[Rfam]
RNA sequence: AACACGCUCCUUAGAUCCACUUCUGGAGGGUUCUCCUGUGCUGGUGCUGUCGUCGCUCUCUGAGUGCUUCAACUCCAGCCUGGAGGCCCUCAACAGCUUUCUGGCUGUACAGUUGGAGGUGCUUGAGUCAUUGGUGUGUGAGAGCAGUCUACCUGCCCCGCCCAGCCCCACUGUUGCUCUGGCAUCCCUCAGUUCUACUGGGGGGAUUCUACCAGCGCAGCUGGGCUGGGGGGCGGACAAC
Dot-bracket structure: .(((((((.(((((...(((((((((((((...(((...((((..(.((..(.((((.....)))))..)).)..))))..)))..))))).((((((....)))))).....)))))))).))))).....))))))).............(((((....(.((((.......(((.((((.(.(((...........)))....)....)))).)))....)))).)..))))).....
Shown here is a 241-nucleotide RNA sequence from Oncorhynchus mykiss, a member of the family "Small nucleolar RNA SNORA53". The snoRNA ACA53 belongs to the H/ACA family of pseudouridylation guide snoRNAs. Rfam 15.1 lists 1,090 matches to the family in 800 species. It is annotated as an H/ACA-box small nucleolar RNA. NCBI's taxonomy places the organism under Eukaryota, Craniata, Osteoglossocephalai, Salmoniformes, Oncorhynchus. Pairs were carried over by alignment from the consensus structure, which was predicted with RNAalifold.